Rfam assigns this 123-nucleotide RNA sequence from Pelotomaculum isophthalicicum to the family "Molybdenum/Tungsten riboswitch aptamer (Moco RNA motif)". The source organism's lineage runs through Bacteria, Bacillati, Clostridia, Pelotomaculum and Pelotomaculum isophthalicicum. It scores 51 bits against the family's covariance model.

RNA sequence: CCACAGUGUAACAUCCUAGUCUGCCCGCCUGUGGCCUCGCGCGGCUAUGGCGGCUGACCGGCAGGGCCGGCCCGGAAACAGGCCUGCCUCCCAGUGCGGAAAGGGUUGUUUGCCUGCUGUGCA
Numbered sequence: 001c002c003a004c005a006g007u008g009u010a011a012c013a014u015c016c017u018a019g020u021c022u023g024c025c026c027g028c029c030u031g032u033g034g035c036c037u038c039g040c041g042c043g044g045c046u047a048u049g050g051c052g053g054c055u056g057a058c059c060g061g062c063a064g065g066g067c068c069g070g071c072c073c074g075g076a077a078a079c080a081g082g083c084c085u086g087c088c089u090c091c092c093a094g095u096g097c098g099g100a101a102a103g104g105g106u107u108g109u110u111u112g113c114c115u116g117c118u119g120u121g122c123a
Stems, first nucleotide, its partner, number of pairs: 004116001006114001011109003015105001016103001019058003023054003027051003033046004064089004069084004074079001090099002